[Rfam]
RNA sequence: GAUCCGAUAGUAUGGUAGAAAGAUUCAUAUAUUUCGUUCUACCAUACCAGUUAUGAUUGUUAUUGUAAUUUAUUGUAAUGUAACA
Dot-bracket structure: .....(.(.(((((((((((.((..........)).))))))))))).).)..................................
Numbered sequence: 001g002a003u004c005c006g007a008u009a010g011u012a013u014g015g016u017a018g019a020a021a022g023a024u025u026c027a028u029a030u031a032u033u034u035c036g037u038u039c040u041a042c043c044a045u046a047c048c049a050g051u052u053a054u055g056a057u058u059g060u061u062a063u064u065g066u067a068a069u070u071u072a073u074u075g076u077a078a079u080g081u082a083a084c085a
Stems, first nucleotide, its partner, number of pairs: 006051001008049001010047011022035002